A member of the RNA family "int-alpA RNA" from Chromatocurvus halotolerans, 67 nucleotides long.
Rfam 15.1 lists 577 matches to the family in 491 species.
[Rfam]
RNA sequence: GCAGCGCCUAGGCUGAUCCCCGAACACCCGCGUCCCUGGCGGGCUGGUGCUGCUCUUUUUACCAGGG
Numbered sequence: 001g002c003a004g005c006g007c008c009u010a011g012g013c014u015g016a017u018c019c020c021c022g023a024a025c026a027c028c029c030g031c032g033u034c035c036c037u038g039g040c041g042g043g044c045u046g047g048u049g050c051u052g053c054u055c056u057u058u059u060u061a062c063c064a065g066g067g
Base pairs, nucleotide, nucleotide: 001053002052003051004050005049006048007047008046011021012020027043028042029041030040031039034067035066036065037064038063
By type it is a small RNA. From the family's description: Acidobacteria (1 example), Planctomycetes (1 example), Proteobacteria.